[Rfam]
RNA sequence: ACAAAGGCUCUUUUAAGAGCCACCCAUUUUAUCUGAUAGAGAGUG
Dot-bracket structure: .....((((((....))))))........................